A member of the RNA family "Pestivirus 3' UTR SLIV and SLII bovine viral diarrhea virus (BVDV-1)" from Orthopestivirus bovis, 124 nucleotides long. The pairing is the family consensus, mapped onto this sequence. Rfam's curators put it in the seed alignment.
RNA sequence: GAUGAUGUAUAUAUUGUAUAUAAACUGACAAGUGUACAUAUUAACAGUAAAUAUAGUUGAGAAUAGUGGUGACAUAGAUUUAUCUACCUCAAGCUAACACUACACUCAAUGCACACAGCACUUU
Numbered sequence: 001g002a003u004g005a006u007g008u009a010u011a012u013a014u015u016g017u018a019u020a021u022a023a024a025c026u027g028a029c030a031a032g033u034g035u036a037c038a039u040a041u042u043a044a045c046a047g048u049a050a051a052u053a054u055a056g057u058u059g060a061g062a063a064u065a066g067u068g069g070u071g072a073c074a075u076a077g078a079u080u081u082a083u084c085u086a087c088c089u090c091a092a093g094c095u096a097a098c099a100c101u102a103c104a105c106u107c108a109a110u111g112c113a114c115a116c117a118g119c120a121c122u123u124u
Base pairs, nucleotide, nucleotide: 003043004042005039006038007037008036009035010034011033012032056110057109058108059107060106061105064102065101066100067099069098070097080096084093085092